[Rfam]
RNA sequence: UGUACCGUCUCGCUGAAUCUUCGUCAGGAAUGACGAAGAACGGGGGAACCCGAAGCGGUCUGCCGAUUAUGAUUUCCGAACUCACCGUUCGGCGAAAGCAGCCCGUGGUCGAUUCCUUUUCAACUGGGUCUACGGGGUGAAUUGGAGGUCUUCUCGCCAUGAGCGGAAGAACCGACAUAGGACGACUCUCUUCGUCCGAACCCGACAGCUAACCUCGUAAGCGCACAAUAAGAGAGAGG
Numbered sequence: 001u002g003u004a005c006c007g008u009c010u011c012g013c014u015g016a017a018u019c020u021u022c023g024u025c026a027g028g029a030a031u032g033a034c035g036a037a038g039a040a041c042g043g044g045g046g047a048a049c050c051c052g053a054a055g056c057g058g059u060c061u062g063c064c065g066a067u068u069a070u071g072a073u074u075u076c077c078g079a080a081c082u083c084a085c086c087g088u089u090c091g092g093c094g095a096a097a098g099c100a101g102c103c104c105g106u107g108g109u110c111g112a113u114u115c116c117u118u119u120u121c122a123a124c125u126g127g128g129u130c131u132a133c134g135g136g137g138u139g140a141a142u143u144g145g146a147g148g149u150c151u152u153c154u155c156g157c158c159a160u161g162a163g164c165g166g167a168a169g170a171a172c173c174g175a176c177a178u179a180g181g182a183c184g185a186c187u188c189u190c191u192u193c194g195u196c197c198g199a200a201c202c203c204g205a206c207a208g209c210u211a212a213c214c215u216c217g218u219a220a221g222c223g224c225a226c227a228a229u230a231a232g233a234g235a236g237a238g239g
Base pairs, nucleotide, nucleotide: 011223012222013221014220018039019038020037021036022035023034024033025032026031040218041217042216043215044214045213050134135203136202137201143177144176180197181196182195183194
Annotation
Shown here is a 239-nucleotide sequence from Saccharibacillus brassicae, a member of the family "c-di-AMP riboswitch aptamer (ydaO/yuaA leader)". Gene Ontology terms of the family: cyclic-di-AMP binding and regulation of gene expression.